[Rfam]
RNA sequence: CUGUCUCUUGCUUCAACAAUGUUUGGACGGAGCAG
Numbered sequence: 001c002u003g004u005c006u007c008u009u010g011c012u013u014c015a016a017c018a019a020u021g022u023u024u025g026g027a028c029g030g031a032g033c034a035g
Stems, first nucleotide, its partner, number of pairs: 001035004006031003010028001012027005017021001
Rfam assigns this 35-nucleotide sequence from Sorex araneus to the family "Iron response element I". The literature on the family includes a 1987 paper in Science by Hentze et al., "Identification of the iron-responsive element for the translational regulation of human ferritin mRNA". The base pairs follow the family's consensus structure, which is taken from published work.